[Rfam]
RNA sequence: CCGACUUUUGUACCCGGGUAAAGGUACAUACCUCCCUGUUGGACUGGCCGGGCCAUAGUGCCCGGCCUUUUUU
Numbered sequence: 001c002c003g004a005c006u007u008u009u010g011u012a013c014c015c016g017g018g019u020a021a022a023g024g025u026a027c028a029u030a031c032c033u034c035c036c037u038g039u040u041g042g043a044c045u046g047g048c049c050g051g052g053c054c055a056u057a058g059u060g061c062c063c064g065g066c067c068u069u070u071u072u073u
Base pairs, nucleotide, nucleotide: 009028010027011026012025013024014023046067047066048065049064050063051062052061053060
A member of the RNA family "Singlet oxygen resistance RNA X" from Sulfitobacter sp. D7, 73 nucleotides long. The match comes from Rfam's covariance-model search (67 bits). Rfam classes the family as a small RNA. On this family, see Berghoff et al., Mol Microbiol 2009: "Photooxidative stress-induced and abundant small RNAs in Rhodobacter sphaeroides". About the family: SorX (RSs2461)like SorY is a singlet oxygen induced sRNA that counteracts oxidative stress by targeting mRNA for a transporter in Rhodobacter. The base pairs follow the family's consensus structure. Taxonomically the source falls in Sulfitobacter (Bacteria, Pseudomonadota, Alphaproteobacteria, Roseobacteraceae).